[Rfam]
RNA: Small nucleolar RNA Z159/U59
Organism: Chenopodium quinoa
RNA sequence: GCCUCUAAUGAUGAUGAAAACAUAACUUUCGUUCUUCUGAGAAACUCAUGCGGAAACUAUAUGGAGACCUGAACUGAAGAGGC
Numbered sequence: 001g002c003c004u005c006u007a008a009u010g011a012u013g014a015u016g017a018a019a020a021c022a023u024a025a026c027u028u029u030c031g032u033u034c035u036u037c038u039g040a041g042a043a044a045c046u047c048a049u050g051c052g053g054a055a056a057c058u059a060u061a062u063g064g065a066g067a068c069c070u071g072a073a074c075u076g077a078a079g080a081g082g083c
Stems, first nucleotide, its partner, number of pairs: 003081004
Dot-bracket structure: ..((((.......................................................................))))..